[Rfam]
RNA sequence: UCACCACGACAGGGGAGCGCCGCCGCAGAGGGCGCUGAGAGUGCGGAUCAGCCGCAGACCCUUGAACCUGCUCCGGUUAGCACCGGCGAAGGGAGUCACGAUGAGUUCUGC
Numbered sequence: 001u002c003a004c005c006a007c008g009a010c011a012g013g014g015g016a017g018c019g020c021c022g023c024c025g026c027a028g029a030g031g032g033c034g035c036u037g038a039g040a041g042u043g044c045g046g047a048u049c050a051g052c053c054g055c056a057g058a059c060c061c062u063u064g065a066a067c068c069u070g071c072u073c074c075g076g077u078u079a080g081c082a083c084c085g086g087c088g089a090a091g092g093g094a095g096u097c098a099c100g101a102u103g104a105g106u107u108c109u110g111c
Base pairs, nucleotide, nucleotide: 008097009096010095011062012061013060014059017035018034019033020032021031042056043055044054045053046052067092068091069090073086074085075084076083
Shown here is a 111-nucleotide RNA from an Actinomycetales bacterium, a member of the family "TPP riboswitch aptamer (THI element)". Gene Ontology term of the family: thiamine pyrophosphate binding. Lineage of the source: Bacteria > Bacillati > Actinomycetota > Actinomycetes > Actinomycetales. Rfam's curators write: Vitamin B(1) in its active form thiamin pyrophosphate (TPP) is an essential coenzyme that is synthesised by coupling of pyrimidine and thiazole moieties in bacteria.